[Rfam]
RNA sequence: UCUGUGCGGCAGACAAUUGAAUGCGUAUGUGUUGGUCGCGAACUCUUUGCGCUCCAUAGUUUUAGCUUGACCGUCAAUAUACAGCAAAGAUCGUGCUUGGACAUCUUAGUACCUGUCUGCAUCAGGCUCGUUCUGAUGGAGAGGGUCGGUAGUUCAGACAUUU
Dot-bracket structure: .....................((((((......(((((...(.(..............).)......))))).......))).)))..........((((((...........(.(((.(((.((.......)).))).))).).......))))))......